[Rfam]
RNA sequence: UUUAUUGCCUAACAUAUAAGGGUCCAGCAUAAAAAACCCCGACUAAUCGGGGUUUUUUGUUAUCUAAAUAUCUGCAUUUUGGGGAUAGUUAGAAGUUGCUUGGAAUUUAAAUUGGGCUAUAAGCCCUUUUUUU
Numbered sequence: 001u002u003u004a005u006u007g008c009c010u011a012a013c014a015u016a017u018a019a020g021g022g023u024c025c026a027g028c029a030u031a032a033a034a035a036a037c038c039c040c041g042a043c044u045a046a047u048c049g050g051g052g053u054u055u056u057u058u059g060u061u062a063u064c065u066a067a068a069u070a071u072c073u074g075c076a077u078u079u080u081g082g083g084g085a086u087a088g089u090u091a092g093a094a095g096u097u098g099c100u101u102g103g104a105a106u107u108u109a110a111a112u113u114g115g116g117c118u119a120u121a122a123g124c125c126c127u128u129u130u131u132u133u
Stems, first nucleotide, its partner, number of pairs: 033056009114126004